Shown here is a 137-nucleotide RNA sequence from Vibrio sp. 10N.286.49.B3, a member of the family "Group II catalytic intron D1-D4-7". The literature on the family includes a 2001 paper in Trends Genet by Bonen and Vogel, "The ins and outs of group II introns". The pairing is the family consensus, mapped onto this sequence. Group II introns are found in rRNA, tRNA and mRNA of organelles in fungi, plants and protists, and also in mRNA in bacteria. Gene Ontology term of the family: Group II intron splicing. A search with the family's covariance model found it, with a score of 80 bits.
RNA sequence: CCAUCUGUAUCACCAGAUGAACCUAGGACUCUGAAUAAAGUAGCGAGUCUGACAAUGUAACGAAGAUUGGUCAUGCACCAGUCGGGAUCUAAAUCGUGAGAGGACGAUCCUCCUGAUAACCACAAUCGGGUGAGUGC
Numbered sequence: 001c002c003a004u005c006u007g008u009a010u011c012a013c014c015a016g017a018u019g020a021a022c023c024u025a026g027g028a029c030u031c032u033g034a035a036u037a038a039a040g041u042a043g044c045g046a047g048u049c050u051g052a053c054a055a056u057g058u059a060a061c062g063a064a065g066a067u068u069g070g071u072c073a074u075g076c077a078c079c080a081g082u083c084g085g086g087a088u089c090u091a092a093a094u095c096g097u098g099a100g101a102g103g104a105c106g107a108u109c110c111u112c113c114u115g116a117u118a119a120c121c122a123c124a125a126u127c128g129g130g131u132g133a134g135u136g137c
Stems, first nucleotide, its partner, number of pairs: 002019006027049005032040001065083006084110003094101002112130006